[Rfam]
This 119-nucleotide RNA sequence from Chitinophaga rupis belongs to the Rfam family "SAM riboswitch aptamer (S box leader)". The organism belongs to Chitinophaga, within Bacteria. The family has 457 seed sequences and 9,625 matches in Rfam 15.1. It scores 90 bits against the family's covariance model. From the family's description: The SAM riboswitch is found upstream of a number of genes which code for proteins involved in methionine or cysteine biosynthesis in Gram-positive bacteria.
RNA sequence: CACUUAUCCAGAAAGGCGGAGGGACUUGGCCCUGCGAUGCCUUAGCAACCAUUUCUGCUGAUAACAGCAGAAAAAAGGUGCUAAUUCCUGCCCCGGUACAUACCGGGGAAAGAUAAGUU
Dot-bracket structure: .(((((((....(((((...(((..[.[[)))......)))))((((.((.(((((((........)))))))...))))))...(]].]((((((......))))))..)))))))).